c-di-GMP-I riboswitch aptamer: an 87-nucleotide sequence from Xylanibacillus composti. Rfam's curators write: GEMM was predicted in a large-scale screen for bacterial structured RNA regulatory elements.
RNA sequence: AUACGAUAAAGGCAAAUCUAAUGAAAAUUAGAGACGCAAAGCUAUAGGGCCUUCCUUACAAAUGUAAGAUGGCAGCCAGUUUCCGAA
Numbered sequence: 001a002u003a004c005g006a007u008a009a010a011g012g013c014a015a016a017u018c019u020a021a022u023g024a025a026a027a028u029u030a031g032a033g034a035c036g037c038a039a040a041g042c043u044a045u046a047g048g049g050c051c052u053u054c055c056u057u058a059c060a061a062a063u064g065u066a067a068g069a070u071g072g073c074a075g076c077c078a079g080u081u082u083c084c085g086a087a
Base pairs, nucleotide, nucleotide: 012037013036017032018031019030020029021028022027040081041080042079043078047077048076049073050072051071056067057066058065059064